[Rfam]
RNA: Coronavirus 3' UTR pseudoknot
RNA sequence: CUACUCUUACACAGAAUGGUAAGCACGUAUCUAUGCAGGGUGUAAGUAACUCAUAGAUAUAUUA
Numbered sequence: 001c002u003a004c005u006c007u008u009a010c011a012c013a014g015a016a017u018g019g020u021a022a023g024c025a026c027g028u029a030u031c032u033a034u035g036c037a038g039g040g041u042g043u044a045a046g047u048a049a050c051u052c053a054u055a056g057a058u059a060u061a062u063u064a
Stems, first nucleotide, its partner, number of pairs: 007045006028059002031056005037051002